[Rfam]
RNA: Bacterial RNase P class A
Organism: Actinotalea fermentans
RNA sequence: UGAGUCGGCCAGGCGGCCGCGUCGGGGGAGACCCCGCCGAGGAACGUCCGGGCUCCGCAGAGCAGGGUGGUGGGUAACGCCCACCCGGGGUGACCCGCGGGACAGUGCCACAGAGAACAGACCGCCAUCCGGCAGGGCCUCGGCCAGGCCGGGCGGCAAGGGUGAAACGGUGGAGUAAGAGCCCACCAGCGCACCGGGUGACCGGUGCGGCUCGGCAAACCCCACCCGGAGCAAGGCCAGACAGGGAGCGUUCGAGGGCUGCUCGCCCGAGCUCCCGGGUAGGCCGCUGGAGGUGUGCGGCAACGUACACCCGAGAUGGAUGGCCGCCACCGGCGCCUUCGGGCGCCGGGACAGAACCCGGCGUACCGGCCGACUCAUCCG
Numbered sequence: 001u002g003a004g005u006c007g008g009c010c011a012g013g014c015g016g017c018c019g020c021g022u023c024g025g026g027g028g029a030g031a032c033c034c035c036g037c038c039g040a041g042g043a044a045c046g047u048c049c050g051g052g053c054u055c056c057g058c059a060g061a062g063c064a065g066g067g068u069g070g071u072g073g074g075u076a077a078c079g080c081c082c083a084c085c086c087g088g089g090g091u092g093a094c095c096c097g098c099g100g101g102a103c104a105g106u107g108c109c110a111c112a113g114a115g116a117a118c119a120g121a122c123c124g125c126c127a128u129c130c131g132g133c134a135g136g137g138c139c140u141c142g143g144c145c146a147g148g149c150c151g152g153g154c155g156g157c158a159a160g161g162g163u164g165a166a167a168c169g170g171u172g173g174a175g176u177a178a179g180a181g182c183c184c185a186c187c188a189g190c191g192c193a194c195c196g197g198g199u200g201a202c203c204g205g206u207g208c209g210g211c212u213c214g215g216c217a218a219a220c221c222c223c224a225c226c227c228g229g230a231g232c233a234a235g236g237c238c239a240g241a242c243a244g245g246g247a248g249c250g251u252u253c254g255a256g257g258g259c260u261g262c263u264c265g266c267c268c269g270a271g272c273u274c275c276c277g278g279g280u281a282g283g284c285c286g287c288u289g290g291a292g293g294u295g296u297g298c299g300g301c302a303a304c305g306u307a308c309a310c311c312c313g314a315g316a317u318g319g320a321u322g323g324c325c326g327c328c329a330c331c332g333g334c335g336c337c338u339u340c341g342g343g344c345g346c347c348g349g350g351a352c353a354g355a356a357c358c359c360g361g362c363g364u365a366c367c368g369g370c371c372g373a374c375u376c377a378u379c380c381g
Stems, first nucleotide, its partner, number of pairs: 001377010012328007020039002023036005044364003048361005053231004060264004065227005070084005085099001086097004100222002105220002107216003122161002124157003128153005169187005189211001190209008235285004244276006256268004292311008